Small nucleolar RNA SNORD103/SNORD85: an 85-nucleotide sequence from Myripristis murdjan. It is annotated as a C/D-box small nucleolar RNA. It scores 59 bits against the family's covariance model.

[Rfam]
RNA sequence: UCUGGCUGUGAUGACACACUUGCCCCUCACUGAGAGAUCAGUCUCGAUAAUGAGAAUUUCUUGUACUCAUAUUUCCUGAGCCACA
Numbered sequence: 001u002c003u004g005g006c007u008g009u010g011a012u013g014a015c016a017c018a019c020u021u022g023c024c025c026c027u028c029a030c031u032g033a034g035a036g037a038u039c040a041g042u043c044u045c046g047a048u049a050a051u052g053a054g055a056a057u058u059u060c061u062u063g064u065a066c067u068c069a070u071a072u073u074u075c076c077u078g079a080g081c082c083a084c085a
Base pairs, nucleotide, nucleotide: 001085003083004082005081006080
Pairs were carried over by alignment from the consensus structure.